[Rfam]
RNA sequence: UUCUUAUCAAGAGAGGUUGAGGGACUGGCCCGAUGACACCUCGGCAGCGGAAUCUUAUUGAUUCUAUGCCAAAUCCAGCAAGCACCAGUGCUUGAAAGAUGAGAA
Dot-bracket structure: ((((((((....(((((...(((.[[[[)))......)))))((((..(((((.......))))).))))...(]]]]((((((....))))))..)))))))))